[Rfam]
RNA sequence: UGCCGAAGUUUUCCUCGGUAGUUAACUGCAAUCGGUUCCAUAAUUCAGCAGUUAACCGCCGAAGGGCAU
Numbered sequence: 001u002g003c004c005g006a007a008g009u010u011u012u013c014c015u016c017g018g019u020a021g022u023u024a025a026c027u028g029c030a031a032u033c034g035g036u037u038c039c040a041u042a043a044u045u046c047a048g049c050a051g052u053u054a055a056c057c058g059c060c061g062a063a064g065g066g067c068a069u
Stems, first nucleotide, its partner, number of pairs: 012065002015062005021056009

The family of this 69-nucleotide sequence from Medicago truncatula is "MIR2629 microRNA precursor family". It scores 71 bits against the family's covariance model. The family's consensus secondary structure was predicted with RNAalifold.